[Rfam]
RNA: malK-I RNA
RNA sequence: UCCAUGACCCCGCCUACUCCACUUUCUUAGACGGCAAGUCAUGAAAAAAAGGAGGAUUAAAACGCCCUGCUCGGGCUGCGGCAGUGUGGAGACCUGUCGCAACGCAGACCGUUCCGCGCGGGCGGCUGCAAGCGGUAUCACGCGGAGGCGGAUACUGCGGAGCAAAGGAACAUGGCA
Number, nucleotide and partner (000 for none) at each position: 001u000002c000003c000004a000005u000006g040007a039008c038009c000010c034011c033012g032013c000014c030015u029016a028017c000018u000019c000020c000021a000022c000023u000024u000025u000026c000027u000028u016029a015030g014031a000032c012033g011034g010035c000036a000037a000038g008039u007040c006041a000042u000043g000044a000045a000046a000047a000048a000049a000050a000051g000052g000053a000054g000055g000056a000057u000058u000059a000060a000061a000062a000063c000064g076065c075066c074067c073068u164069g163070c162071u161072c160073g067074g066075g065076c064077u101078g100079c099080g098081g097082c096083a095084g094085u000086g093087u092088g000089g000090a000091g000092a087093c086094c084095u083096g082097u081098c080099g079100c078101a077102a000103c000104g129105c128106a127107g126108a000109c125110c124111g123112u122113u000114c000115c000116g000117c000118g000119c000120g000121g000122g112123c111124g110125g109126c107127u106128g105129c104130a000131a000132g158133c157134g156135g155136u154137a153138u152139c151140a000141c150142g149143c148144g000145g000146a000147g000148g143149c142150g141151g139152a138153u137154a136155c135156u134157g133158c132159g000160g072161a071162g070163c069164a068165a000166a000167g000168g000169a000170a000171c000172a000173u000174g000175g000176c000177a000